[Rfam]
Annotation
The family of this 78-nucleotide RNA sequence from Xenorhabdus bovienii is "Proteobacteria sRNA psRNA14". The literature on the family includes a 2010 paper in FEMS Microbiol Lett by Gvakharia et al., "Computational prediction and transcriptional analysis of sRNAs in Nitrosomonas europaea". Pairs were carried over by alignment from the consensus structure.

RNA sequence: GUUAACUCAACAACCACCGACUAAAGUCGGUGGUUGUUGAGUUAUGACAAGGUAAAAAAAUAAAUUUUACUGAAAUAU
Numbered sequence: 001g002u003u004a005a006c007u008c009a010a011c012a013a014c015c016a017c018c019g020a021c022u023a024a025a026g027u028c029g030g031u032g033g034u035u036g037u038u039g040a041g042u043u044a045u046g047a048c049a050a051g052g053u054a055a056a057a058a059a060a061u062a063a064a065u066u067u068u069a070c071u072g073a074a075a076u077a078u
Stems, first nucleotide, its partner, number of pairs: 001078002003044019051071005057066002